[Rfam]
RNA: Streptomyces-metH RNA
RNA sequence: GAGUCCACGCCUCGGAACACCCGCGCCCCGCGGGGCGUCGACAGAUACCCUGGCCGGGUGCGCCUUCCGAUGGAAGACGCAAAGCCGACAGCCGUCGCACCUCUGGGAGCCCCUCAUG
Dot-bracket structure: ..........................................................((((.((((.....)))).))))..((.(((....)))))....................